[Rfam]
RNA sequence: GGAAAUAAACGGUCGUCGUAAUAAACCAUUCGGACCCGGGGGCGGUACCCGGCGCCUCCACCAAAGCCCACCAGCGGGCUAGCCCUAGAAGCGGGUUUUGGCGGGGGCGAAAUAGGAUCGACGAGGGCGUAAAGGGCGUGCUUUUUCCCGGUAUUGUUCCGCCGUUAUCGGGCUACUGCAAUAGUUGCCAACGACAACUUUGCUCCGGUUGCUCAGGCUGCGUAA
Number, nucleotide and partner (000 for none) at each position: 001g148002g147003a146004a145005a144006u000007a000008a000009a000010c000011g000012g000013u000014c138015g137016u136017c135018g000019u000020a000021a000022u000023a000024a000025a000026c127027c126028a000029u000030u124031c123032g122033g000034a000035c000036c052037c051038g050039g049040g048041g000042g000043c000044g000045g000046u000047a000048c040049c039050c038051g037052g036053c109054g108055c107056c106057u105058c104059c103060a000061c000062c000063a000064a000065a000066g000067c000068c000069c000070a000071c000072c000073a000074g000075c000076g000077g000078g000079c000080u000081a000082g000083c000084c000085c000086u000087a000088g000089a000090a000091g000092c000093g000094g000095g000096u000097u000098u000099u000100g000101g000102c000103g059104g058105g057106g056107g055108c054109g053110a000111a000112a000113u000114a000115g000116g000117a000118u000119c000120g000121a000122c032123g031124a030125g000126g027127g026128c000129g000130u000131a000132a000133a000134g000135g017136g016137c015138g014139u000140g000141c000142u000143u000144u005145u004146u003147c002148c001149c164150g163151g162152u161153a000154u000155u000156g000157u000158u000159c000160c000161g152162c151163c150164g149165u000166u000167a000168u000169c000170g000171g000172g000173c000174u000175a000176c000177u000178g000179c000180a000181a000182u000183a000184g000185u000186u000187g000188c000189c000190a000191a000192c000193g000194a000195c000196a000197a000198c000199u000200u000201u000202g000203c000204u000205c000206c000207g000208g000209u000210u000211g000212c000213u000214c000215a000216g000217g000218c000219u000220g000221c000222g000223u000224a000225a000
RNA: permuted transfer-messenger RNA
Organism: Bradyrhizobium diazoefficiens